RNA sequence: AGAGUAAGUCAGCCUAAUCCCGAUCAAGCUUCAAAGCCAAGGGAGCGGAGGAACCAAAUUGUGGGGCGCAUCUUUAAGUAACUUAAGGAAGGACAUCUCUCUGUCCUAGCCCGUCAGCUAACUUCGUAGGCGUGGGGAGGAGACUGU
Numbered sequence: 001a002g003a004g005u006a007a008g009u010c011a012g013c014c015u016a017a018u019c020c021c022g023a024u025c026a027a028g029c030u031u032c033a034a035a036g037c038c039a040a041g042g043g044a045g046c047g048g049a050g051g052a053a054c055c056a057a058a059u060u061g062u063g064g065g066g067c068g069c070a071u072c073u074u075u076a077a078g079u080a081a082c083u084u085a086a087g088g089a090a091g092g093a094c095a096u097c098u099c100u101c102u103g104u105c106c107u108a109g110c111c112c113g114u115c116a117g118c119u120a121a122c123u124u125c126g127u128a129g130g131c132g133u134g135g136g137g138a139g140g141a142g143a144c145u146g147u
Stems, first nucleotide, its partner, number of pairs: 012131003018044003045127006055063002064112003072088004091106004
This 147-nucleotide RNA from Gloeocapsa sp. PCC 73106 belongs to the Rfam family "c-di-AMP riboswitch aptamer (ydaO/yuaA leader)". A search with the family's covariance model found it, with a score of 80 bits. The base pairs follow the family's consensus structure. Lineage of the source: Bacteria > Cyanobacteriota > Cyanophyceae > Chroococcidiopsidaceae > Gloeocapsa.